[Rfam]
RNA sequence: UGGGCUGGCCGGGCGACCGCGUCGCUCCCCUCGGGGAGCGCCGAGGAAGGUCCGGGCUCCACAGGGCAGGGUGAUGGUCAACAACCAUCCGGGGCAACCCGCGGGACAGUGCCACAGAGAACAGACCGCCGCACGAGGCUCCGGCCGAGGGCGGCAAGGGUGAAACGGUGGGGUAAGAGCCCACCAGCGUGCCGGGUGACCGGUGCGGCUAGGUAAACCCCACCCGGAGCAAGAUCAGACAGUGUGCGUCCGAGGGCGGCCCGCCCGAGCACACGGGUAGAUCGCUGGAGGGAGUCGGCAACGGCUCUCGUAGAUGGAUGGUCGCCGGCACCCGGUUCUCGAACCGGGCGUCACAGAACCCGGCCUACAGGCCAGCCCAUUCG
Number, nucleotide and partner (000 for none) at each position: 001u379002g378003g377004g376005c375006u374007g373008g372009c371010c370011g368012g326013g325014c324015g323016a322017c321018c320019g000020c043021g042022u000023c040024g039025c038026u037027c036028c035029c000030c000031u000032c000033g000034g000035g028036g027037a026038g025039c024040g023041c000042c021043g020044a000045g000046g000047a000048a366049g365050g364051u000052c363053c362054g361055g360056g359057c229058u228059c227060c226061a000062c000063a000064g262065g261066g260067c259068a000069g225070g224071g223072u222073g221074a088075u087076g086077g085078u084079c000080a000081a000082c000083a000084a078085c077086c076087a075088u074089c103090c101091g100092g099093g098094g000095c000096a000097a000098c093099c092100c091101g090102c000103g089104g220105g219106a000107c000108a000109g218110u217111g214112c213113c212114a000115c000116a000117g000118a000119g000120a000121a000122c000123a000124g000125a000126c159127c158128g155129c154130c153131g152132c151133a000134c149135g000136a000137g000138g000139c000140u000141c000142c000143g000144g000145c000146c000147g000148a000149g134150g000151g132152c131153g130154g129155c128156a000157a000158g127159g126160g000161u000162g000163a000164a000165a000166c000167g185168g184169u183170g182171g181172g180173g000174u000175a000176a000177g000178a000179g000180c172181c171182c170183a169184c168185c167186a000187g209188c207189g206190u205191g204192c203193c202194g201195g200196g000197u000198g000199a000200c195201c194202g193203g192204u191205g190206c189207g188208g000209c187210u000211a000212g113213g112214u111215a000216a000217a110218c109219c105220c104221c073222a072223c071224c070225c069226g060227g059228a058229g057230c000231a000232a000233g283234a282235u281236c280237a000238g000239a000240c000241a000242g274243u273244g272245u271246g270247c269248g000249u000250c000251c000252g000253a000254g266255g265256g264257c263258g000259g067260c066261c065262c064263g257264c256265c255266c254267g000268a000269g247270c246271a245272c244273a243274c242275g000276g000277g000278u000279a000280g236281a235282u234283c233284g000285c000286u000287g000288g000289a000290g309291g308292g307293a306294g305295u304296c303297g302298g000299c000300a000301a000302c297303g296304g295305c294306u293307c292308u291309c290310g000311u000312a000313g000314a000315u000316g000317g000318a000319u000320g018321g017322u016323c015324g014325c013326c012327g000328g000329c000330a000331c000332c000333c000334g000335g000336u000337u000338c000339u000340c000341g000342a000343a000344c000345c000346g000347g000348g000349c000350g000351u000352c000353a000354c000355a000356g000357a000358a000359c056360c055361c054362g053363g052364c050365c049366u048367a000368c011369a000370g010371g009372c008373c007374a006375g005376c004377c003378c002379a001380u000381u000382c000383g000

The family of this 383-nucleotide sequence from Nocardioides currus is "Bacterial RNase P class A". It is annotated as a ribozyme. The source organism's lineage runs through Bacteria, Bacillati, Actinomycetota, Propionibacteriales and Nocardioides.